[Rfam]
RNA: mir-36 microRNA precursor family
RNA sequence: AAAGAGCCAGAACCUAUACCGGUUUCACUUCGUGGUGAUAUGACGCAUAUUACAUUCUUUAUCACCGGGAGUAAAACUGGUAUAGGAUCUGCGACUCGC
Numbered sequence: 001a002a003a004g005a006g007c008c009a010g011a012a013c014c015u016a017u018a019c020c021g022g023u024u025u026c027a028c029u030u031c032g033u034g035g036u037g038a039u040a041u042g043a044c045g046c047a048u049a050u051u052a053c054a055u056u057c058u059u060u061a062u063c064a065c066c067g068g069g070a071g072u073a074a075a076a077c078u079g080g081u082a083u084a085g086g087a088u089c090u091g092c093g094a095c096u097c098g099c
Stems, first nucleotide, its partner, number of pairs: 010089002013086004018081008027072005033067001035065006